This 121-nucleotide RNA from Chironomus riparius belongs to the Rfam family "mir-998 microRNA precursor family". A search with the family's covariance model found it, with a score of 62 bits.

RNA sequence: UUUACCAUUCUAAGAGCUGGAUUCUUGUGGAUCUACACAUAAUUAUAAAAUGAUUAAUUUUUUACACAUUAAAAAAUUGCAUGCUUGUAGCACCAUAAGAUUCAGCUCCUAUGAUGGUAGC
Numbered sequence: 001u002u003u004a005c006c007a008u009u010c011u012a013a014g015a016g017c018u019g020g021a022u023u024c025u026u027g028u029g030g031a032u033c034u035a036c037a038c039a040u041a042a043u044u045a046u047a048a049a050a051u052g053a054u055u056a057a058u059u060u061u062u063u064a065c066a067c068a069u070u071a072a073a074a075a076a077u078u079g080c081a082u083g084c085u086u087g088u089a090g091c092a093c094c095a096u097a098a099g100a101u102u103c104a105g106c107u108c109c110u111a112u113g114a115u116g117g118u119a120g121c
Base pairs, nucleotide, nucleotide: 003119004118005117006116007115009113011111012110014108015107017105018104019103023100024099025098026097027096028095029094030093033090034089035088036087037086